Rfam assigns this 143-nucleotide RNA sequence from Priestia megaterium to the family "c-di-AMP riboswitch aptamer (ydaO/yuaA leader)".
It scores 103 bits against the family's covariance model.

RNA sequence: CACUGUGAAACGCUGAGUCUUUUCUGAAAGAGAAGGAAAGAGCGGAGGACCCAAUUAUCAGGGGUGUAUCUCUUAAUUGAGUAGGGUUACUUUCUUGACCCGAACCCGUCAGCUAACUUCGUAAGCGUUAAGAGAGAGGAUGG
Numbered sequence: 001c002a003c004u005g006u007g008a009a010a011c012g013c014u015g016a017g018u019c020u021u022u023u024c025u026g027a028a029a030g031a032g033a034a035g036g037a038a039a040g041a042g043c044g045g046a047g048g049a050c051c052c053a054a055u056u057a058u059c060a061g062g063g064g065u066g067u068a069u070c071u072c073u074u075a076a077u078u079g080a081g082u083a084g085g086g087u088u089a090c091u092u093u094c095u096u097g098a099c100c101c102g103a104a105c106c107c108g109u110c111a112g113c114u115a116a117c118u119u120c121g122u123a124a125g126c127g128u129u130a131a132g133a134g135a136g137a138g139g140a141u142g143g
Stems, first nucleotide, its partner, number of pairs: 011127004018041008042122006052061001062107003070081003084101004